[Rfam]
CRISPR RNA direct repeat element: a 37-nucleotide RNA from Nocardia huaxiensis. The source organism's lineage runs through Bacteria, Bacillati, Mycobacteriales, Nocardiaceae and Nocardia. The family's consensus secondary structure was predicted with WAR.
RNA sequence: GCGGCGCCGGACCUCCGGGUCCGGCGAGAAUCUCAAC
Dot-bracket structure: ....(((((((((....)))))))))...........